[Rfam]
RNA: Small nucleolar RNA snoR136
Organism: Oryza brachyantha
RNA sequence: AGCGUUUGUGCUUCUCUAGGUUCAUGCUUAAGAACUGCUUGUGGUUCUUGAGCUCUGGAAAGAGAAGCGAAAGACUUAGUGGUUCCUCUCGCUAUCCUGGGCAUAAAUCUUUUUGAUGUCGCUGGACGUUGAGGAACUACAUGU
Numbered sequence: 001a002g003c004g005u006u007u008g009u010g011c012u013u014c015u016c017u018a019g020g021u022u023c024a025u026g027c028u029u030a031a032g033a034a035c036u037g038c039u040u041g042u043g044g045u046u047c048u049u050g051a052g053c054u055c056u057g058g059a060a061a062g063a064g065a066a067g068c069g070a071a072a073g074a075c076u077u078a079g080u081g082g083u084u085c086c087u088c089u090c091g092c093u094a095u096c097c098u099g100g101g102c103a104u105a106a107a108u109c110u111u112u113u114u115g116a117u118g119u120c121g122c123u124g125g126a127c128g129u130u131g132a133g134g135a136a137c138u139a140c141a142u143g144u
Stems, first nucleotide, its partner, number of pairs: 003069003009063001011062003016058002019055002026053011082137007090128002095126003099122001104116001106114001